Shown here is an 84-nucleotide RNA from Conger conger, a member of the family "Mammalian CPEB3 ribozyme". Lineage of the source: Eukaryota > Opisthokonta > Chordata > Teleostei > Conger.
[Rfam]
RNA sequence: UUAGUAUCAGAUGGGGAUCAAGGUAAAAGCAUUCACGUCACGAUCCCUGUCAAGUAAUACUUGGUAUUACCUGCAAAUUCUAAA
Numbered sequence: 001u002u003a004g005u006a007u008c009a010g011a012u013g014g015g016g017a018u019c020a021a022g023g024u025a026a027a028a029g030c031a032u033u034c035a036c037g038u039c040a041c042g043a044u045c046c047c048u049g050u051c052a053a054g055u056a057a058u059a060c061u062u063g064g065u066a067u068u069a070c071c072u073g074c075a076a077a078u079u080c081u082a083a084a
Stems, first nucleotide, its partner, number of pairs: 014047006024082002027079002029041001051073002054070007